The record is a 287-nucleotide sequence from Leptothoe spongobia, which matches "Group I catalytic intron" in Rfam. Rfam links the family to the GO term Group I intron splicing. From the family's description: Group I catalytic introns are large self-splicing ribozymes. They catalyse their own excision from mRNA, tRNA and rRNA precursors in a wide range of organisms. NCBI's taxonomy places the organism under Bacteria, Bacillati, Cyanobacteriota, Leptothoe, Leptothoe spongobia.
[Rfam]
RNA sequence: CUGCGGACUUAGAAAACUGAGCCUUAGUGGAGAAAUCUGCUAAGUGGAAGCUCUCAAACUCAGGGAAACCUAAGUCUCCAUAACCAAUUUUUAUGGGUGGAGAUACGGCAAUCCUGAGCCAAGCCCUUUAAAAGGCGAAAGGCGAAAGGCGGAAGGCGGAAAAUAAACUCAUCCUUCAUGCUUCAUCUUUCAUCCCUUUAGAGGGAAGGUGCAGAGGCCCGACGGGAGCUACCCUAACGUCAAGUCGAGGGUAAAGGGAGGGUCCAAUCCUCAAAGCCCGCUUUGCG
Numbered sequence: 001c002u003g004c005g006g007a008c009u010u011a012g013a014a015a016a017c018u019g020a021g022c023c024u025u026a027g028u029g030g031a032g033a034a035a036u037c038u039g040c041u042a043a044g045u046g047g048a049a050g051c052u053c054u055c056a057a058a059c060u061c062a063g064g065g066a067a068a069c070c071u072a073a074g075u076c077u078c079c080a081u082a083a084c085c086a087a088u089u090u091u092u093a094u095g096g097g098u099g100g101a102g103a104u105a106c107g108g109c110a111a112u113c114c115u116g117a118g119c120c121a122a123g124c125c126c127u128u129u130a131a132a133a134g135g136c137g138a139a140a141g142g143c144g145a146a147a148g149g150c151g152g153a154a155g156g157c158g159g160a161a162a163a164u165a166a167a168c169u170c171a172u173c174c175u176u177c178a179u180g181c182u183u184c185a186u187c188u189u190u191c192a193u194c195c196c197u198u199u200a201g202a203g204g205g206a207a208g209g210u211g212c213a214g215a216g217g218c219c220c221g222a223c224g225g226g227a228g229c230u231a232c233c234c235u236a237a238c239g240u241c242a243a244g245u246c247g248a249g250g251g252u253a254a255a256g257g258g259a260g261g262g263u264c265c266a267a268u269c270c271u272c273a274a275a276g277c278c279c280g281c282u283u284u285g286c287g
Stems, first nucleotide, its partner, number of pairs: 005023001008021005029037001049230005055224001060117006069108002073104001118210002124204002131198002134196002214265001216264005232251004272285005
It scores 77 bits against the family's covariance model.